[Rfam]
RNA sequence: UUUCUGCACUAGGGGUGCCGUUUAUGGCUGAGAUGCGAGCAUGGCUCCGAUCCCUUAUGACCCGAUCAGGAUAAUGCCUGCGUGGGGAAGUGUAGUGACUUUCCC
Numbered sequence: 001u002u003u004c005u006g007c008a009c010u011a012g013g014g015g016u017g018c019c020g021u022u023u024a025u026g027g028c029u030g031a032g033a034u035g036c037g038a039g040c041a042u043g044g045c046u047c048c049g050a051u052c053c054c055u056u057a058u059g060a061c062c063c064g065a066u067c068a069g070g071a072u073a074a075u076g077c078c079u080g081c082g083u084g085g086g087g088a089a090g091u092g093u094a095g096u097g098a099c100u101u102u103c104c105c
Base pairs, nucleotide, nucleotide: 006093007092008091009090010089011055012054013053014052016049017028018027019026020025035048037047038046039045040044061086062085063084064083067080068079069078070077
Rfam assigns this 105-nucleotide RNA from Sporosarcina sp. Te-1 to the family "TPP riboswitch aptamer (THI element)".